A member of the RNA family "L19-Flavobacteria ribosomal protein leader", 28 nucleotides long. The family's consensus secondary structure is taken from published work.

[Rfam]
RNA sequence: CAACCUCUAGCGAUACCCGUACAUGUUG
Numbered sequence: 001c002a003a004c005c006u007c008u009a010g011c012g013a014u015a016c017c018c019g020u021a022c023a024u025g026u027u028g
Base pairs, nucleotide, nucleotide: 001028002027003026004025008023010020011019012018
Source information
By type it is a cis-regulatory leader.